[Rfam]
RNA sequence: CCCAGAUCCUUCAGUGCCACACUCCGUGUAUUUGACAAGCUGAGUUGGACACUCCGUGUCGUAGAGUGUCAGUUUGUCAAAUACCCCAAGUGAGGCAUUUGCCUAG
Numbered sequence: 001c002c003c004a005g006a007u008c009c010u011u012c013a014g015u016g017c018c019a020c021a022c023u024c025c026g027u028g029u030a031u032u033u034g035a036c037a038a039g040c041u042g043a044g045u046u047g048g049a050c051a052c053u054c055c056g057u058g059u060c061g062u063a064g065a066g067u068g069u070c071a072g073u074u075u076g077u078c079a080a081a082u083a084c085c086c087c088a089a090g091u092g093a094g095g096c097a098u099u100u101g102c103c104u105a106g
Stems, first nucleotide, its partner, number of pairs: 020092004026086001028084014048070004053065002
The family of this 106-nucleotide RNA from Monodelphis domestica is "mir-223 microRNA precursor family". The source organism's lineage runs through Eukaryota, Eumetazoa, Euteleostomi, Theria and Monodelphis.